[Rfam]
The record is a 55-nucleotide RNA sequence from Oncorhynchus kisutch, which matches "U7 small nuclear RNA" in Rfam.
RNA sequence: AAACGUUGCUCUUUUAGUGUUUGUCCAGCAGGUUUUCUCAAGGAGAAAGACCCCA
Number, nucleotide and partner (000 for none) at each position: 001a000002a000003a000004c000005g000006u000007u000008g000009c000010u000011c000012u000013u000014u000015u000016a000017g000018u000019g000020u000021u000022u000023g000024u000025c000026c000027a000028g000029c000030a000031g052032g051033u050034u048035u047036u046037c045038u044039c000040a000041a000042g000043g000044a038045g037046a036047a035048a034049g000050a033051c032052c031053c000054c000055a000
The base pairs follow the family's consensus structure, which was predicted with PFOLD. The match comes from Rfam's covariance-model search (44 bits).